[Rfam]
Rfam assigns this 263-nucleotide sequence from Clostridium chromiireducens to the family "glmS glucosamine-6-phosphate activated ribozyme aptamer". A search with the family's covariance model found it, with a score of 94 bits.
RNA sequence: AAAUUCAAAAAAGCGCCAGGACUAAGUGAUGCUCAGUUAGAAAUGAAGUUAGUGAAAAGAUGGUUUUUUGUUAAAGGAAACUCGACUCACAUUCGUUCGCUGAGUAAGUUCAAGCUACCAAAUCGAAGAUUUGGACUUUCACUUACGUUGACGAGGUUGGGGAGUAUCGAAACUUCGGCGGGUGCCCCACGGUAUCGCACUACCGUAAACGGCUGGUAAAACUGUAAAGCGAUUUGCAGCACAAAUUCAGCUUGGUGUUAAAA
Numbered sequence: 001a002a003a004u005u006c007a008a009a010a011a012a013g014c015g016c017c018a019g020g021a022c023u024a025a026g027u028g029a030u031g032c033u034c035a036g037u038u039a040g041a042a043a044u045g046a047a048g049u050u051a052g053u054g055a056a057a058a059g060a061u062g063g064u065u066u067u068u069u070g071u072u073a074a075a076g077g078a079a080a081c082u083c084g085a086c087u088c089a090c091a092u093u094c095g096u097u098c099g100c101u102g103a104g105u106a107a108g109u110u111c112a113a114g115c116u117a118c119c120a121a122a123u124c125g126a127a128g129a130u131u132u133g134g135a136c137u138u139u140c141a142c143u144u145a146c147g148u149u150g151a152c153g154a155g156g157u158u159g160g161g162g163a164g165u166a167u168c169g170a171a172a173c174u175u176c177g178g179c180g181g182g183u184g185c186c187c188c189a190c191g192g193u194a195u196c197g198c199a200c201u202a203c204c205g206u207a208a209a210c211g212g213c214u215g216g217u218a219a220a221a222c223u224g225u226a227a228a229g230c231g232a233u234u235u236g237c238a239g240c241a242c243a244a245a246u247u248c249a250g251c252u253u254g255g256u257g258u259u260a261a262a263a
Stems, first nucleotide, its partner, number of pairs: 020149003023145005029139001158189005167178004190205005211252005222239007
Taxonomically the source falls in Clostridium (Bacteria, Bacillota, Clostridia, Clostridiaceae).